Rfam assigns this 82-nucleotide RNA sequence from Kitasatospora setae to the family "ZMP/ZTP riboswitch aptamer (pfl RNA motif)". A search with the family's covariance model found it, with a score of 58 bits. The organism belongs to Kitasatospora setae, within Bacteria. Pairs were carried over by alignment from the consensus structure, which is taken from published work.
[Rfam]
RNA sequence: UCCGAGGGCCGUGACUGGCGCACGGGUGGAGCACCACCGGGGAGCGGCCGCCGCACCGUUGCCGCGCGCCUGGGCGAACUCG
Numbered sequence: 001u002c003c004g005a006g007g008g009c010c011g012u013g014a015c016u017g018g019c020g021c022a023c024g025g026g027u028g029g030a031g032c033a034c035c036a037c038c039g040g041g042g043a044g045c046g047g048c049c050g051c052c053g054c055a056c057c058g059u060u061g062c063c064g065c066g067c068g069c070c071u072g073g074g075c076g077a078a079c080u081c082g
Stems, first nucleotide, its partner, number of pairs: 003053002007049006015041002017070005026037004059077005